[Rfam]
RNA sequence: AGCUUUUUGAAUUUGUGCAGAGAUCUCGUCAGACACCAACCCAUUACUGCUGACCAAACUUCCAAGAUAAGUGAAGUU
Numbered sequence: 001a002g003c004u005u006u007u008u009g010a011a012u013u014u015g016u017g018c019a020g021a022g023a024u025c026u027c028g029u030c031a032g033a034c035a036c037c038a039a040c041c042c043a044u045u046a047c048u049g050c051u052g053a054c055c056a057a058a059c060u061u062c063c064a065a066g067a068u069a070a071g072u073g074a075a076g077u078u
Stems, first nucleotide, its partner, number of pairs: 002077005008071001011068003016064002020061003024058001026056001028054003
Rfam assigns this 78-nucleotide RNA from Schistosoma margrebowiei to the family "mir-3492 microRNA precursor family".
The match comes from Rfam's covariance-model search (48 bits).
Lineage of the source: Eukaryota > Opisthokonta > Metazoa > Bilateria > Schistosoma.